[Rfam]
RNA sequence: UGGAACAAUGUAAGCAAGGAAAGUCGACAAAAUGGAUUCGUAACCUCAGGAAAAGGAUUUACUCUGAGGGCUGGGCAUGGAGGUCCCAGUCCCGAACCCGUCGAUUGCCGGUGGACUGCUCGAGCUGCUCCCGCGGCGAGAGUGGGUCACCGUGUGCCGGUCAGGGGAUGGACUAGAAACGGCUCCCUCGGGGGCUUUCCCCGAGCGUCGAACAGUCGACUCAGAAUUGGUACGGAUAAGGGGAAUCCAACUGUUUAAUUAAAACAAAGCAUUGCAAUGGUUCUUGUGGAUGCUCACGCAAUGUGAUUUCUACUCAAUGCUCUGAAUGUCAAAGUGAAAAAAUUCAACCAAGUGCAGGUAAACGGUGAGAGUAACUAUGACUCUCUUAAGGUAGCCAAAUGCCUUGUCAUCUAAUUAGUGAUGCGCAUGAAUGGAUUAAUGAGAUUCCCACUGUCCUUGUCUACUAUCUAGCGAAACCACAGCCAAAGGAACGGGCUUGGCGGA
Numbered sequence: 001u002g003g004a005a006c007a008a009u010g011u012a013a014g015c016a017a018g019g020a021a022a023g024u025c026g027a028c029a030a031a032a033u034g035g036a037u038u039c040g041u042a043a044c045c046u047c048a049g050g051a052a053a054a055g056g057a058u059u060u061a062c063u064c065u066g067a068g069g070g071c072u073g074g075g076c077a078u079g080g081a082g083g084u085c086c087c088a089g090u091c092c093c094g095a096a097c098c099c100g101u102c103g104a105u106u107g108c109c110g111g112u113g114g115a116c117u118g119c120u121c122g123a124g125c126u127g128c129u130c131c132c133g134c135g136g137c138g139a140g141a142g143u144g145g146g147u148c149a150c151c152g153u154g155u156g157c158c159g160g161u162c163a164g165g166g167g168a169u170g171g172a173c174u175a176g177a178a179a180c181g182g183c184u185c186c187c188u189c190g191g192g193g194g195c196u197u198u199c200c201c202c203g204a205g206c207g208u209c210g211a212a213c214a215g216u217c218g219a220c221u222c223a224g225a226a227u228u229g230g231u232a233c234g235g236a237u238a239a240g241g242g243g244a245a246u247c248c249a250a251c252u253g254u255u256u257a258a259u260u261a262a263a264a265c266a267a268a269g270c271a272u273u274g275c276a277a278u279g280g281u282u283c284u285u286g287u288g289g290a291u292g293c294u295c296a297c298g299c300a301a302u303g304u305g306a307u308u309u310c311u312a313c314u315c316a317a318u319g320c321u322c323u324g325a326a327u328g329u330c331a332a333a334g335u336g337a338a339a340a341a342a343u344u345c346a347a348c349c350a351a352g353u354g355c356a357g358g359u360a361a362a363c364g365g366u367g368a369g370a371g372u373a374a375c376u377a378u379g380a381c382u383c384u385c386u387u388a389a390g391g392u393a394g395c396c397a398a399a400u401g402c403c404u405u406g407u408c409a410u411c412u413a414a415u416u417a418g419u420g421a422u423g424c425g426c427a428u429g430a431a432u433g434g435a436u437u438a439a440u441g442a443g444a445u446u447c448c449c450a451c452u453g454u455c456c457u458u459g460u461c462u463a464c465u466a467u468c469u470a471g472c473g474a475a476a477c478c479a480c481a482g483c484c485a486a487a488g489g490a491a492c493g494g495g496c497u498u499g500g501c502g503g504a
Stems, first nucleotide, its partner, number of pairs: 001470004010464003014460003018456003035059005044049001061227001063225006069217005075206002078203003082199002084178001086176001088174004097165002100162001101160003105156001109152006116145006124137005229233001241449007248441002252266003269304007280291004308435003312366003318362001319359003324355001327354003335346004367385006386390001406422005483500004
Eukaryotic large subunit ribosomal RNA: a 504-nucleotide part of an RNA from Vitis vinifera.
Rfam 15.1 lists 107,465 matches to the family in 2,616 species.
The match comes from Rfam's covariance-model search (2529 bits).
The base pairs follow the family's consensus structure, which is taken from published work.
Lineage of the source: Eukaryota > Euphyllophyta > Magnoliopsida > Mesangiospermae > Vitis.